[Rfam]
RNA sequence: AAAAACAAAUAUGUAAUCACGCAUAUAAUCGCAGGGAUAUGGCCUGCAAGUUUCUACCGGAUUACCGUAAAUGAUCCGACUAUGGGUGAGCGAUAACUCGGG
Numbered sequence: 001a002a003a004a005a006c007a008a009a010u011a012u013g014u015a016a017u018c019a020c021g022c023a024u025a026u027a028a029u030c031g032c033a034g035g036g037a038u039a040u041g042g043c044c045u046g047c048a049a050g051u052u053u054c055u056a057c058c059g060g061a062u063u064a065c066c067g068u069a070a071a072u073g074a075u076c077c078g079a080c081u082a083u084g085g086g087u088g089a090g091c092g093a094u095a096a097c098u099c100g101g102g
Stems, first nucleotide, its partner, number of pairs: 018088003022084004029049001031047005058078007
Rfam assigns this 102-nucleotide RNA from Bacillus sp. V59.32b to the family "Purine riboswitch aptamer". The source organism's lineage runs through Bacteria, Bacillati, Bacillota, Bacillaceae and Bacillus. The match comes from Rfam's covariance-model search (88 bits). The base pairs follow the family's consensus structure, which is taken from published work.